Small nucleolar RNA SNORA77: a 123-nucleotide sequence from Tupaia belangeri. The literature on the family includes a 2006 paper in RNA by Schattner et al., "A computational screen for mammalian pseudouridylation guide H/ACA RNAs". Rfam describes the family as follows. ACA63 (SNORA77) is a member of the H/ACA class of snoRNAs that guide the sites of modification of uridines to pseudouridines. This snoRNA was identified by computational screening and its expression in mouse experimentally verified by Northern blot and primer extension analysis.

RNA sequence: GCAGACUCACUCUGCACCCGGCCGCAGCCCCGGGCGGGUGCUUUUGCCGUCUGCCAGAGAAACGUUCCAGGCGUUGCGGCGCCUUGGCCUGCCAGGGCGAUGCAGCUGCUUGGGGACACGGGU
Numbered sequence: 001g002c003a004g005a006c007u008c009a010c011u012c013u014g015c016a017c018c019c020g021g022c023c024g025c026a027g028c029c030c031c032g033g034g035c036g037g038g039u040g041c042u043u044u045u046g047c048c049g050u051c052u053g054c055c056a057g058a059g060a061a062a063c064g065u066u067c068c069a070g071g072c073g074u075u076g077c078g079g080c081g082c083c084u085u086g087g088c089c090u091g092c093c094a095g096g097g098c099g100a101u102g103c104a105g106c107u108g109c110u111u112g113g114g115g116a117c118a119c120g121g122g123u
Stems, first nucleotide, its partner, number of pairs: 001054006014041007022033003066114007073106006080099005
Source information: The organism belongs to Tupaia belangeri, within Eukaryota. Gene Ontology terms of the family: nucleolus and RNA processing.